The family of this 72-nucleotide sequence from Streptomyces vietnamensis is "tRNA". It scores 64 bits against the family's covariance model. By type it is a transfer RNA. Transfer RNA (tRNA) molecules are approximately 80 nucleotides in length. Their secondary structure includes four short double-helical elements and three loops (D, anti-codon, and T loops). Further hydrogen bonds mediate the characteristic L-shaped molecular structure. tRNAs have two regions of fundamental functional importance: the anti-codon, which is responsible for specific mRNA codon recognition, and the 3' end, to which the tRNAs corresponding amino acid is attached (by aminoacyl-tRNA synthetases). tRNAs cope with the degeneracy of the genetic code in two manners: having more than one tRNA (with a specific anti-codon) for a particular amino acid; and 'wobble' base-pairing, i.e. permitting non-standard base-pairing at the 3rd anti-codon position.
[Rfam]
RNA sequence: GACCGUGUGCCCGAGUGGUUGAGGGGCUCGCCUGCAAAGCGAGUUACGCGGGUUCAAUUCCCGCCACGGUCU
Numbered sequence: 001g002a003c004c005g006u007g008u009g010c011c012c013g014a015g016u017g018g019u020u021g022a023g024g025g026g027c028u029c030g031c032c033u034g035c036a037a038a039g040c041g042a043g044u045u046a047c048g049c050g051g052g053u054u055c056a057a058u059u060c061c062c063g064c065c066a067c068g069g070u071c072u
Stems, first nucleotide, its partner, number of pairs: 001071007010025003027043005048064005